[Rfam]
RNA sequence: UGCAGUGUUUCAGUACCUGCACCCAGCAGCCUUCUGGUGGGAUGUUCAAAAAACAGUGCUACAGCAGUGCAGCAUUUGGCAUCCUUGGUUUUCAUUCUGCUGUGUCUGUUGAACCUGGUAUUUUUGCUGAAACAGUC
Numbered sequence: 001u002g003c004a005g006u007g008u009u010u011c012a013g014u015a016c017c018u019g020c021a022c023c024c025a026g027c028a029g030c031c032u033u034c035u036g037g038u039g040g041g042a043u044g045u046u047c048a049a050a051a052a053a054c055a056g057u058g059c060u061a062c063a064g065c066a067g068u069g070c071a072g073c074a075u076u077u078g079g080c081a082u083c084c085u086u087g088g089u090u091u092u093c094a095u096u097c098u099g100c101u102g103u104g105u106c107u108g109u110u111g112a113a114c115c116u117g118g119u120a121u122u123u124u125u126g127c128u129g130a131a132a133c134a135g136u137c
Base pairs, nucleotide, nucleotide: 002059003058004057006055007054018050019045020044021043023041024040025038027036028035029034062126063125064124066122067121068120070117071116072115078106079105080104081103082102
The record is a 137-nucleotide RNA from Melanocharis versteri, which matches "Small nucleolar RNA SNORA8" in Rfam. Gene Ontology terms of the family: nucleolus and RNA processing. The organism belongs to Melanocharis, within Eukaryota. The match comes from Rfam's covariance-model search (71 bits).